RNA: Y RNA
RNA sequence: GGUUGGUCCAAGUGCAGUGGUAUUUAUAACCAAUGGAUCACAACCAGUUACGGAUUCCUUUGUUCCUUCUCCACUCCCACUGCUUCACUUGACCAGCCUUUA
Numbered sequence: 001g002g003u004u005g006g007u008c009c010a011a012g013u014g015c016a017g018u019g020g021u022a023u024u025u026a027u028a029a030c031c032a033a034u035g036g037a038u039c040a041c042a043a044c045c046a047g048u049u050a051c052g053g054a055u056u057c058c059u060u061u062g063u064u065c066c067u068u069c070u071c072c073a074c075u076c077c078c079a080c081u082g083c084u085u086c087a088c089u090u091g092a093c094c095a096g097c098c099u100u101u102a
Stems, first nucleotide, its partner, number of pairs: 001098008010090002014086001016081005028064003032060002
Dot-bracket structure: ((((((((.((..(.(((((.......(((.((.........................)).)))............)))))....)..))))))))))....